[Rfam]
RNA sequence: GAAUUAUGAUGAUGAACAUUAUAUAAUCUGACUAAUUUAUAUGAAUGGGUAAACAACCUGCUACUCAUUUUGC
Numbered sequence: 001g002a003a004u005u006a007u008g009a010u011g012a013u014g015a016a017c018a019u020u021a022u023a024u025a026a027u028c029u030g031a032c033u034a035a036u037u038u039a040u041a042u043g044a045a046u047g048g049g050u051a052a053a054c055a056a057c058c059u060g061c062u063a064c065u066c067a068u069u070u071u072g073c
Base pairs, nucleotide, nucleotide: 006068007067008066009065028049029048032043